[Rfam]
RNA sequence: AUUGAAAAAACGCCGAAUCCCCGUAUAGCGGGGUACGGGGGACUUAUUUAAAUGGGUGAAUCCAUAAAGGUAGUUAGCAGCCGGUAGUCAAAAAGUCAAUAUUUGAAGGAAUUCGCUUUAGCAAAUUCCACAAGCGAUCCGGCUUCCGACCUCCGACUGCCGACGACCGAAUUGGUAGGGUAUCCUCUAAACCCGAACCCGUAAACUAACCCCGGAGGCUUAAGGAGGGACACA
Numbered sequence: 001a002u003u004g005a006a007a008a009a010a011c012g013c014c015g016a017a018u019c020c021c022c023g024u025a026u027a028g029c030g031g032g033g034u035a036c037g038g039g040g041g042a043c044u045u046a047u048u049u050a051a052a053u054g055g056g057u058g059a060a061u062c063c064a065u066a067a068a069g070g071u072a073g074u075u076a077g078c079a080g081c082c083g084g085u086a087g088u089c090a091a092a093a094a095g096u097c098a099a100u101a102u103u104u105g106a107a108g109g110a111a112u113u114c115g116c117u118u119u120a121g122c123a124a125a126u127u128c129c130a131c132a133a134g135c136g137a138u139c140c141g142g143c144u145u146c147c148g149a150c151c152u153c154c155g156a157c158u159g160c161c162g163a164c165g166a167c168c169g170a171a172u173u174g175g176u177a178g179g180g181u182a183u184c185c186u187c188u189a190a191a192c193c194c195g196a197a198c199c200c201g202u203a204a205a206c207u208a209a210c211c212c213c214g215g216a217g218g219c220u221u222a223a224g225g226a227g228g229g230a231c232a233c234a
Stems, first nucleotide, its partner, number of pairs: 012219003019033005036214005054200003062175003178194004

Shown here is a 234-nucleotide RNA from Pelotomaculum schinkii, a member of the family "c-di-AMP riboswitch aptamer (ydaO/yuaA leader)". Taxonomically the source falls in Pelotomaculum (Bacteria, Bacillati, Bacillota, Eubacteriales). About the family: This family represents a conserved RNA structure found upstream of the ydaO and yuaA genes in Bacillus subtilis and related genes in other bacteria.